Shown here is a 102-nucleotide RNA sequence from Jeotgalibacillus soli, a member of the family "Purine riboswitch aptamer". The organism belongs to Jeotgalibacillus, within Bacteria.
[Rfam]
RNA sequence: CUGAUACAGAAUACACCCCUUCAUAUAUGUUCGAUAAUAGGGUUCGAAUGUCUCUACCAAAUCACCGGAAAUGAUUUGACUAUGAGGGUGGCCUAAUAAAGA
Numbered sequence: 001c002u003g004a005u006a007c008a009g010a011a012u013a014c015a016c017c018c019c020u021u022c023a024u025a026u027a028u029g030u031u032c033g034a035u036a037a038u039a040g041g042g043u044u045c046g047a048a049u050g051u052c053u054c055u056a057c058c059a060a061a062u063c064a065c066c067g068g069a070a071a072u073g074a075u076u077u078g079a080c081u082a083u084g085a086g087g088g089u090g091g092c093c094u095a096a097u098a099a100a101g102a
Base pairs, nucleotide, nucleotide: 018088019087020086021085022084023083024082025081029049030048031047032046033045034044058078059077060076061075062074063073064072
The match comes from Rfam's covariance-model search (79 bits).